Small nucleolar RNA Z247: a 139-nucleotide RNA from Zizania palustris. The base pairs follow the family's consensus structure, which was predicted with PFOLD. Taxonomically the source falls in Zizania (Eukaryota, Tracheophyta, Magnoliopsida, Zizaniinae). Its family is annotated with nucleolus and RNA processing in the Gene Ontology. The literature on the family includes a 2003 paper in Nucleic Acids Res by Chen et al., "The high diversity of snoRNAs in plants: identification and comparative study of 120 snoRNA genes from Oryza sativa". The match comes from Rfam's covariance-model search (44 bits). By type it is a C/D-box small nucleolar RNA.
RNA sequence: CCUCUUCGCGAUGAUGAAAUCAUCGCAUACCUCCUGGCGGGCCUCGGAUCCGACUACGACCCCUUCGUCACCUCCAUGACGACCAAGACCGAGACUCUAUCCCUCGACAACGCCUACGCUCACCUCCUCACGUUCGAGU
Numbered sequence: 001c002c003u004c005u006u007c008g009c010g011a012u013g014a015u016g017a018a019a020u021c022a023u024c025g026c027a028u029a030c031c032u033c034c035u036g037g038c039g040g041g042c043c044u045c046g047g048a049u050c051c052g053a054c055u056a057c058g059a060c061c062c063c064u065u066c067g068u069c070a071c072c073u074c075c076a077u078g079a080c081g082a083c084c085a086a087g088a089c090c091g092a093g094a095c096u097c098u099a100u101c102c103c104u105c106g107a108c109a110a111c112g113c114c115u116a117c118g119c120u121c122a123c124c125u126c127c128u129c130a131c132g133u134u135c136g137a138g139u
Stems, first nucleotide, its partner, number of pairs: 004138003008134001090106004